[Rfam]
RNA: mir-252 microRNA precursor family
RNA sequence: UACAAAUGCUAAGUAGUUGUGCCGUAGGUAACUUAUAUGAGAUUACCUGCUGCCUACUGCUUAACACCUGUA
Dot-bracket structure: ((((..(..((((((((.(....(((((((.............)))))))...).))))))))..)..))))
Numbered sequence: 001u002a003c004a005a006a007u008g009c010u011a012a013g014u015a016g017u018u019g020u021g022c023c024g025u026a027g028g029u030a031a032c033u034u035a036u037a038u039g040a041g042a043u044u045a046c047c048u049g050c051u052g053c054c055u056a057c058u059g060c061u062u063a064a065c066a067c068c069u070g071u072a
Stems, first nucleotide, its partner, number of pairs: 001072004007066001010063008019054001024050007